[Rfam]
RNA sequence: UACAUUUGCAACUUCAAUGAAAAAAAUCAUUGAUGUACAUAAAAUCAUUUAAAUAAUAUUGGCAUG
Numbered sequence: 001u002a003c004a005u006u007u008g009c010a011a012c013u014u015c016a017a018u019g020a021a022a023a024a025a026a027u028c029a030u031u032g033a034u035g036u037a038c039a040u041a042a043a044a045u046c047a048u049u050u051a052a053a054u055a056a057u058a059u060u061g062g063c064a065u066g
Stems, first nucleotide, its partner, number of pairs: 014033006
A member of the RNA family "S15-Flavobacteria ribosomal protein leader", 66 nucleotides long.
The family's RNA type in Rfam is cis-regulatory leader.
On this family, see Eckert and Weinberg, BMC Microbiol 2020: "Discovery of 20 novel ribosomal leader candidates in bacteria and archaea".
The family's consensus secondary structure is taken from published work.
The family is grouped with related families in Rfam's "Ribosomal Protein S15 Leader clan".